[Rfam]
Background: M23 RNA: a 53-nucleotide RNA from Papillibacter cinnamivorans. A search with the family's covariance model found it, with a score of 52 bits. Lineage of the source: Bacteria > Bacillati > Bacillota > Clostridia > Papillibacter cinnamivorans.
RNA sequence: CGGCCCGCCGCCGGCCGCAACGGGCGGCUGCCGCGCGUUAUGCGGCGGAAAGG
Number, nucleotide and partner (000 for none) at each position: 001c000002g000003g000004c000005c000006c000007g028008c027009c026010g025011c024012c023013g000014g000015c000016c000017g000018c000019a000020a000021c000022g000023g012024g011025c010026g009027g008028c007029u000030g046031c045032c044033g043034c042035g041036c000037g000038u000039u000040a000041u035042g034043c033044g032045g031046c030047g000048g000049a000050a000051a000052g000053g000